[Rfam]
The record is a 50-nucleotide RNA, which matches "Streptococcus sRNA SpF59 (ldcC RNA)" in Rfam. The family's consensus secondary structure was predicted with mfold. The literature on the family includes a 2012 paper in PLoS Pathog by Mann et al., "Control of virulence by small RNAs in Streptococcus pneumoniae". It is one of the family's seed sequences.
RNA sequence: UGACCGCCAUUAUUGGCUAAGGCUACACGGACGGCCGGGUCAAAUGCCGA
Numbered sequence: 001u002g003a004c005c006g007c008c009a010u011u012a013u014u015g016g017c018u019a020a021g022g023c024u025a026c027a028c029g030g031a032c033g034g035c036c037g038g039g040u041c042a043a044a045u046g047c048c049g050a
Base pairs, nucleotide, nucleotide: 001042002041003040004039005038006017007016008015009014